A member of the RNA family "Small nucleolar RNA SNORD2" from Castor canadensis, 75 nucleotides long.
The family's consensus secondary structure was predicted with WAR.
Taxonomically the source falls in Castor (Eukaryota, Deuterostomia, Euteleostomi, Euarchontoglires).
RNA sequence: AGCUGAUGUGAUGACAACUAAUGGAUUCUUUUGGGGCUGACCCAAAAUGAAGAGGGUACUCACUGCAGAUCACUU
Numbered sequence: 001a002g003c004u005g006a007u008g009u010g011a012u013g014a015c016a017a018c019u020a021a022u023g024g025a026u027u028c029u030u031u032u033g034g035g036g037c038u039g040a041c042c043c044a045a046a047a048u049g050a051a052g053a054g055g056g057u058a059c060u061c062a063c064u065g066c067a068g069a070u071c072a073c074u075u
Stems, first nucleotide, its partner, number of pairs: 001075002004072003